[Rfam]
Rfam assigns this 171-nucleotide RNA from Allopusillimonas soli to the family "Manganese Mn2+ riboswitch aptamer (yybP-ykoY)". The organism belongs to Allopusillimonas, within Bacteria. The base pairs follow the family's consensus structure. A search with the family's covariance model found it, with a score of 52 bits.
RNA sequence: CUGCCCGGUCUUGGGGAGUAGUCUGCUUCUUUUCGUGAAGCGCCCGCGUCAACACUCUCGGCAUCCUCGCCGUGGCGCGCGCAGCCGUUACUGGCUUGACGAGACCAUGAACACAGCCCGCGCAGAAGGUCAGGUGCGUUGGGCGUGUCAUGGUUUUGUAUCCUGGCCAGG
Number, nucleotide and partner (000 for none) at each position: 001c000002u000003g000004c000005c000006c000007g000008g000009u000010c000011u000012u000013g000014g000015g000016g000017a000018g000019u000020a000021g000022u000023c000024u000025g041026c040027u039028u000029c000030u000031u000032u000033u000034c000035g000036u000037g000038a000039a027040g026041c025042g082043c081044c000045c079046g078047c077048g076049u075050c074051a073052a000053c000054a000055c000056u000057c000058u000059c072060g071061g070062c069063a000064u000065c000066c000067u000068c000069g062070c061071c060072g059073u051074g050075g049076c048077g047078c046079g045080c000081g043082c042083a000084g000085c000086c000087g000088u171089u170090a000091c000092u000093g000094g000095c000096u000097u000098g000099a000100c000101g000102a000103g000104a000105c000106c000107a000108u000109g000110a000111a000112c000113a000114c000115a000116g000117c000118c000119c000120g000121c000122g000123c000124a000125g000126a000127a000128g000129g000130u000131c000132a000133g000134g000135u000136g000137c000138g000139u000140u000141g000142g000143g000144c000145g000146u000147g000148u000149c000150a000151u000152g000153g000154u000155u000156u000157u000158g000159u000160a000161u000162c000163c000164u000165g000166g000167c000168c000169a000170g089171g088